[Rfam]
RNA sequence: UGAUCCUUUAAGAUCAGUCCUGUGAGGCUGGAAAGGAAACGGAACGUUAGGUAGGGCAUAGUAUGUCUGCCUGCGUAGUUUAGACCUCUUUCCAGCACAUGGGAAGAGGUCUUUUCUA
Numbered sequence: 001u002g003a004u005c006c007u008u009u010a011a012g013a014u015c016a017g018u019c020c021u022g023u024g025a026g027g028c029u030g031g032a033a034a035g036g037a038a039a040c041g042g043a044a045c046g047u048u049a050g051g052u053a054g055g056g057c058a059u060a061g062u063a064u065g066u067c068u069g070c071c072u073g074c075g076u077a078g079u080u081u082a083g084a085c086c087u088c089u090u091u092c093c094a095g096c097a098c099a100u101g102g103g104a105a106g107a108g109g110u111c112u113u114u115u116c117u118a
Base pairs, nucleotide, nucleotide: 004037005036006035007034008033009032014031015030016029017028018027019026047078048077049076051074052073053072054071055070057069058068060066082112083111084110085109086108087107088106089105090104091103092102093101094100
This 118-nucleotide RNA from Alkalicoccobacillus porphyridii belongs to the Rfam family "PyrR binding site". Rfam links the family to the GO terms pyrimidine nucleobase transport and pyrimidine nucleobase biosynthetic process. Rfam's curators write: This family represents the PyrR binding site and terminator structure. This RNA structure is found upstream of a variety of genes involved in pyrimidine biosynthesis and transport. The alignment also includes a portion of the antiterminator structure. On this family, see Bonner et al., Nucleic Acids Res 2001: "Molecular recognition of pyr mRNA by the Bacillus subtilis attenuation regulatory protein PyrR".